[Rfam]
RNA: SAH (S-adenosyl-L-homocysteine) riboswitch aptamer
Organism: Methylibium petroleiphilum
RNA sequence: GUGCUCGAGGAGCGUUGCGACGGUUGCCCAGGCUUUGGGACGACCGCCAGGCUCGGGCCGGCGGCACCGCGAGGGCUGCCCUGCAACGGCGCUCACCCCUC
Numbered sequence: 001g002u003g004c005u006c007g008a009g010g011a012g013c014g015u016u017g018c019g020a021c022g023g024u025u026g027c028c029c030a031g032g033c034u035u036u037g038g039g040a041c042g043a044c045c046g047c048c049a050g051g052c053u054c055g056g057g058c059c060g061g062c063g064g065c066a067c068c069g070c071g072a073g074g075g076c077u078g079c080c081c082u083g084c085a086a087c088g089g090c091g092c093u094c095a096c097c098c099c100u101c
Stems, first nucleotide, its partner, number of pairs: 003058006021046006